[Rfam]
Description: The family of this 144-nucleotide RNA sequence from Celerinatantimonas diazotrophica is "Molybdenum/Tungsten riboswitch aptamer (Moco RNA motif)". Lineage of the source: Bacteria > Pseudomonadati > Pseudomonadota > Gammaproteobacteria > Celerinatantimonas. A search with the family's covariance model found it, with a score of 80 bits. Pairs were carried over by alignment from the consensus structure, which is taken from published work.

Nucleotides: 144
Base pairs, nucleotide, nucleotide: 003138004137006135012129013128014127015126016125019058020057021056022055023054024053025052026051029049030048035044036043060082061081062080063079064078085110086109087108088107089106090105091104092103095100111121112120
Number, partner (000 for none) and nucleotide at each position: 001000u002000a003138a004137u005000g006135g007000c008000u009000g010000u011000c012129g013128a014127a015126c016125c017000g018000a019058g020057u021056a022055c023054u024053u025052u026051g027000c028000g029049c030048c031000u032000g033000u034000c035044u036043c037000c038000a039000u040000g041000g042000u043036g044035a045000u046000a047000u048030g049029g050000a051026c052025a053024a054023a055022g056021u057020a058019c059000c060082u061081c062080u063079g064078c065000u066000u067000a068000u069000a070000a071000g072000u073000a074000g075000c076000u077000u078064g079063c080062a081061g082060a083000c084000a085110g086109g087108g088107u089106a090105u091104a092103g093000a094000a095100a096000g097000a098000a099000a100095u101000g102000a103092c104091u105090a106089u107088g108087c109086c110085u111121c112120c113000c114000a115000u116000a117000u118000u119000u120112g121111g122000a123000a124000a125016g126015g127014u128013u129012u130000c131000a132000u133000g134000u135006u136000u137004a138003u139000a140000g141000a142000u143000a144000a